[Rfam]
RNA: SAM riboswitch aptamer (S box leader)
Organism: Symbiobacterium thermophilum
RNA sequence: CUCUUAUCCAGAGUAGGCUGAGGGACUGGCCCGAUGACGCCACGGCAACCGGCACGUCUCCCCAGGCGUGCAGCGGUGCCAAUUCCUGGGGAGGGCUCCGCCCUCCCGAAGAUGAGAG
Number, nucleotide and partner (000 for none) at each position: 001c118002u117003c116004u115005u114006a113007u112008c111009c000010a000011g000012a000013g043014u000015a000016g041017g040018c039019u000020g000021a000022g032023g031024g030025a000026c088027u000028g086029g085030c024031c023032c022033g000034a000035u000036g000037a000038c000039g018040c017041c016042a000043c013044g080045g079046c078047a077048a000049c076050c075051g000052g071053c070054a069055c068056g067057u066058c000059u000060c000061c000062c000063c000064a000065g000066g057067c056068g055069u054070g053071c052072a000073g000074c000075g050076g049077u047078g046079c045080c044081a000082a000083u000084u110085c029086c028087u000088g026089g107090g106091g105092a104093g103094g102095g000096c000097u000098c000099c000100g000101c000102c094103c093104u092105c091106c090107c089108g000109a000110a084111g008112a007113u006114g005115a004116g003117a002118g001